[Rfam]
The record is a 98-nucleotide RNA from Streptomyces somaliensis, which matches "Glycine riboswitch aptamer" in Rfam. Gene Ontology term of the family: glycine biosynthetic process. The organism belongs to Streptomyces somaliensis, within Bacteria.
Nucleotides: 098
Stems, first nucleotide, its partner, number of pairs: 006093008020041007043079003046075002050073003056066001
Number, partner (000 for none) and nucleotide at each position: 001000c002000g003000a004000a005000u006093c007092c008091g009090u010089g011088c012087g013086g014000g015000a016000g017000a018000g019000u020041c021040c022039c023038g024037g025036g026035c027000c028000g029000a030000c031000g032000c033000c034000g035026g036025c037024c038023c039022g040021g041020g042000c043079g044078c045077c046075g047074a048000a049000g050073g051072a052071g053000c054000a055000a056066g057000u058000c059000c060000c061000u062000c063000c064000c065000u066056u067000g068000a069000a070000u071052c072051u073050c074047u075046c076000a077045g078044g079043c080000c081000c082000c083000g084000c085000a086013c087012c088011g089010c090009a091008c092007g093006g094000a095000c096000g097000a098000g